RNA: Group I catalytic intron
Organism: Neolewinella agarilytica
RNA sequence: AUUCGCUGAUCUAAUCAGACUUUAAGCUUGCUUGGGCUGCUAUGGAAGAAACUCCAUAGUGAAUUUCAUCAAAUUCGGGGAAGCCUUUAGUAUGGUAAUCCCGAGCCAAGCCUUGUUCUUCGGAACUCGGAAGGUGUAGAGACUUAAUGGUGAACACCGUAGUAUUAAUUUACCGGUGAAGAGAAAGUCCAGACCAUCAAAUCCGUCAUAA
Numbered sequence: 001a002u003u004c005g006c007u008g009a010u011c012u013a014a015u016c017a018g019a020c021u022u023u024a025a026g027c028u029u030g031c032u033u034g035g036g037c038u039g040c041u042a043u044g045g046a047a048g049a050a051a052c053u054c055c056a057u058a059g060u061g062a063a064u065u066u067c068a069u070c071a072a073a074u075u076c077g078g079g080g081a082a083g084c085c086u087u088u089a090g091u092a093u094g095g096u097a098a099u100c101c102c103g104a105g106c107c108a109a110g111c112c113u114u115g116u117u118c119u120u121c122g123g124a125a126c127u128c129g130g131a132a133g134g135u136g137u138a139g140a141g142a143c144u145u146a147a148u149g150g151u152g153a154a155c156a157c158c159g160u161a162g163u164a165u166u167a168a169u170u171u172a173c174c175g176g177u178g179a180a181g182a183g184a185a186a187g188u189c190c191a192g193a194c195c196a197u198c199a200a201a202u203c204c205g206u207c208a209u210a211a
Stems, first nucleotide, its partner, number of pairs: 005040002008037001010035002013032001044055003065154004070149002075104006084095002087092001105135002111129001118123001139190001141189005157176003160172003196209002199206001